[Rfam]
RNA sequence: ACGCACCACGGAUGCGUUGAUCCUCGGGCACCAGCAGCACGGUCGCCCGUCGCGUCGCAGGGGCUCCUUCAGGGGCACUCCUCCGCGCGAUGGCCUGAGGGGAGCGAGUGGCGAGACCGGCCGUGAGCUGA
Numbered sequence: 001a002c003g004c005a006c007c008a009c010g011g012a013u014g015c016g017u018u019g020a021u022c023c024u025c026g027g028g029c030a031c032c033a034g035c036a037g038c039a040c041g042g043u044c045g046c047c048c049g050u051c052g053c054g055u056c057g058c059a060g061g062g063g064c065u066c067c068u069u070c071a072g073g074g075g076c077a078c079u080c081c082u083c084c085g086c087g088c089g090a091u092g093g094c095c096u097g098a099g100g101g102g103a104g105c106g107a108g109u110g111g112c113g114a115g116a117c118c119g120g121c122c123g124u125g126a127g128c129u130g131a
Base pairs, nucleotide, nucleotide: 002130003129007125008124009123010122011121013106014105015104022100023099024098025097026096027095028094029093041118042117043114044113045112046111047110